RNA sequence: GUCUCUGUGUGAUAUGUUUGAUAUUAGGUUGUUUUUUGGUUUAAAGCAACUAAAUAUUAGACAUAUUCCUACAGCGUC
Numbered sequence: 001g002u003c004u005c006u007g008u009g010u011g012a013u014a015u016g017u018u019u020g021a022u023a024u025u026a027g028g029u030u031g032u033u034u035u036u037u038g039g040u041u042u043a044a045a046g047c048a049a050c051u052a053a054a055u056a057u058u059a060g061a062c063a064u065a066u067u068c069c070u071a072c073a074g075c076g077u078c
Base pairs, nucleotide, nucleotide: 005074006073007072008071009070011067012066013065014064015063016062017061018060019059020058021057022056023055024054025053027051028050029049030048031047
This 78-nucleotide sequence from Callorhinchus milii belongs to the Rfam family "mir-190 microRNA precursor family".
The family is grouped with related families in Rfam's "mir-50 clan".
NCBI's taxonomy places the organism under Eukaryota, Eumetazoa, Deuterostomia, Gnathostomata, Callorhinchus.
Its family is annotated with RISC complex and miRNA-mediated post-transcriptional gene silencing in the Gene Ontology.